[Rfam]
RNA sequence: UUAUAGAACGUUUUAGCUAUUAAACUGUUUUUAUCUCUCUCAGUGAAAGAACAAUUUGUUCUUUGAAAGAGAGAAACAAAACGGAUCAACAGCUAAAACGUUCUGUAAC
Numbered sequence: 001u002u003a004u005a006g007a008a009c010g011u012u013u014u015a016g017c018u019a020u021u022a023a024a025c026u027g028u029u030u031u032u033a034u035c036u037c038u039c040u041c042a043g044u045g046a047a048a049g050a051a052c053a054a055u056u057u058g059u060u061c062u063u064u065g066a067a068a069g070a071g072a073g074a075a076a077c078a079a080a081a082c083g084g085a086u087c088a089a090c091a092g093c094u095a096a097a098a099c100g101u102u103c104u105g106u107a108a109c
Base pairs, nucleotide, nucleotide: 001108002107003106004105005104006103011098012097013096014095015094016093017092018091020089021088023086025084026083027082028081029070030069031068032067034066035065050060051059052058053057
RNA: mir-8517 microRNA precursor family
Organism: Plutella xylostella